Shown here is a 337-nucleotide RNA sequence from a Bathymodiolus azoricus thioautotrophic gill symbiont, a member of the family "Bacterial RNase P class A".

Nucleotides: 337
Stems, first nucleotide, its partner, number of pairs: 001333010011322001012302007020036006041320003045317005050206004057238004062202005067081005082096001083094004097197002102195002104191003119137002122132003145163006164186001165184008210259004220250006230242004266285008
Number, partner (000 for none) and nucleotide at each position: 001333g002332a003331a004330g005329u006328u007327g008326g009325u010324c011322g012302g013301a014300u015299a016298g017297u018296c019000g020036c021035u022034g023033g024032g025031g026000u027000u028000u029000u030000u031025c032024c033023u034022c035021a036020g037000a038000g039000g040000a041320a042319a043318g044000u045317c046316c047315g048314g049313g050206c051205u052204c053203c054000a055000c056000a057238g058237a059236g060235c061000a062202a063201a064200g065199u066198g067081c068080u069079a070078g071077c072000u073000a074000a075000c076000g077071g078070c079069u080068a081067g082096g083094u084093a085092u086091g087000g088000u089000g090000a091086c092085a093084u094083a095000a096082c097197g098196g099000a100000a101000a102195g103194u104191g105190c106189u107000g108000c109000a110000g111000a112000a113000a114000u115000u116000a117000a118000a119137c120136u121000a122132c123131c124130c125000u126000u127000u128000a129000u130124g131123g132122g133000a134000a135000a136120a137119g138000g139000u140000g141000a142000g143000a144000a145163g146162g147161u148160g149159c150158g151000g152000u153000a154000a155000g156000a157000g158150c159149g160148c161147a162146c163145c164186g165184c166183g167182c168181a169180g170179u171178u172177g173000g174000u175000g176000a177172c178171a179170a180169c181168u182167g183166u184165g185000g186164c187000a188000a189106g190105g191104u192000a193000a194103a195102c196098c197097c198066c199065a200064c201063u202062u203053g204052g205051a206050g207000c208000a209000a210259g211258c212257u213256c214000a215000a216000a217000u218000a219000g220250g221249c222248u223247a224246c225245c226000c227000a228000u229000g230242g231241u232240g233239c234000g235060g236059c237058u238057c239233g240232c241231a242230c243000a244000a245225g246224g247223u248222a249221g250220c251000g252000g253000g254000u255000a256213g257212a258211g259210u260000g261000c262000u263000a264000a265000a266285g267284a268283a269282u270281u271280u272279u273278g274000g275000u276000g277000a278273c279272a280271a281270a282269a283268u284267u285266c286000g287000u288000a289000g290000a291000u292000g293000a294000a295000u296018g297017a298016c299015u300014a301013u302012u303000u304000a305000u306000u307000a308000c309000a310000g311000a312000a313049c314048c315047c316046g317045g318043c319042u320041u321000a322011u323000a324010g325009a326008u327007c328006a329005a330004c331003u332002u333001c334000c335000u336000u337000a
The family's RNA type in Rfam is ribozyme. NCBI's taxonomy places the organism under Bacteria, Pseudomonadati, Pseudomonadota, Gammaproteobacteria, sulfur-oxidizing symbionts.